[Rfam]
RNA: Small nucleolar RNA SNORA63
Organism: Oncorhynchus mykiss
RNA sequence: AAGCAGGAUAAGUUACAGCGCUGCAUGUUCAGUACUGCGCUGUCGUUCCCCCUGCACACAGAAACCUGUCUCCUACUAUCCCUGUCUGUCUGCAUCCCACAGCUGGCAGGGACGCUUGGUCUCAGACAA
Numbered sequence: 001a002a003g004c005a006g007g008a009u010a011a012g013u014u015a016c017a018g019c020g021c022u023g024c025a026u027g028u029u030c031a032g033u034a035c036u037g038c039g040c041u042g043u044c045g046u047u048c049c050c051c052c053u054g055c056a057c058a059c060a061g062a063a064a065c066c067u068g069u070c071u072c073c074u075a076c077u078a079u080c081c082c083u084g085u086c087u088g089u090c091u092g093c094a095u096c097c098c099a100c101a102g103c104u105g106g107c108a109g110g111g112a113c114g115c116u117u118g119g120u121c122u123c124a125g126a127c128a129a
Stems, first nucleotide, its partner, number of pairs: 003055005015043007023035001081110004086105001088103002